RNA sequence: UAUGAAUAUAAAGCGCCAGAGCUCAAGGCUUAAUUUAAAUAGCACUUUGAGCUGACGAGGAUGGGGAGUAUCGAAUCUUCGGCGGGUGCCCCACGGUAUCGCACUACCGUUAACAACUGAUAAAACCAGGAAGCGAUUUCUGAUACAACAUCAGUUUGGUGUUAAAA
Numbered sequence: 001u002a003u004g005a006a007u008a009u010a011a012a013g014c015g016c017c018a019g020a021g022c023u024c025a026a027g028g029c030u031u032a033a034u035u036u037a038a039a040u041a042g043c044a045c046u047u048u049g050a051g052c053u054g055a056c057g058a059g060g061a062u063g064g065g066g067a068g069u070a071u072c073g074a075a076u077c078u079u080c081g082g083c084g085g086g087u088g089c090c091c092c093a094c095g096g097u098a099u100c101g102c103a104c105u106a107c108c109g110u111u112a113a114c115a116a117c118u119g120a121u122a123a124a125a126c127c128a129g130g131a132a133g134c135g136a137u138u139u140c141u142g143a144u145a146c147a148a149c150a151u152c153a154g155u156u157u158g159g160u161g162u163u164a165a166a167a
Stems, first nucleotide, its partner, number of pairs: 020053008062093005071082004094109005115156005127142006
This 167-nucleotide sequence from Clostridium ljungdahlii belongs to the Rfam family "glmS glucosamine-6-phosphate activated ribozyme aptamer". A search with the family's covariance model found it, with a score of 110 bits. The family's RNA type in Rfam is riboswitch. From the family's description: This entry contains a glucosamine-6-phosphate activated ribozyme that is found in the mRNA for GlmS. GlmS is an enzyme that uses fructose-6-phosphate and glutamine to generate glucosamine-6-phosphate. The ribozyme catalyses self cleavage of the glmS mRNA that is thought to regulate GlmS activity.